This 95-nucleotide sequence from Gordonia crocea belongs to the Rfam family "Bacterial small signal recognition particle RNA".

RNA sequence: GGCGGAUCCCGCGCGGCGUGCAUCCUGUGAACUCCCCCAGGGCCGGAAGGCAGCAAGGGUCAACGGGCUCUCUCGGGUGCGCGGGGUCCUCUACU
Numbered sequence: 001g002g003c004g005g006a007u008c009c010c011g012c013g014c015g016g017c018g019u020g021c022a023u024c025c026u027g028u029g030a031a032c033u034c035c036c037c038c039a040g041g042g043c044c045g046g047a048a049g050g051c052a053g054c055a056a057g058g059g060u061c062a063a064c065g066g067g068c069u070c071u072c073u074c075g076g077g078u079g080c081g082c083g084g085g086g087u088c089c090u091c092u093a094c095u
Stems, first nucleotide, its partner, number of pairs: 004089010014077001017075002020072001024067005034059003042051003
By type it is a non-coding RNA gene.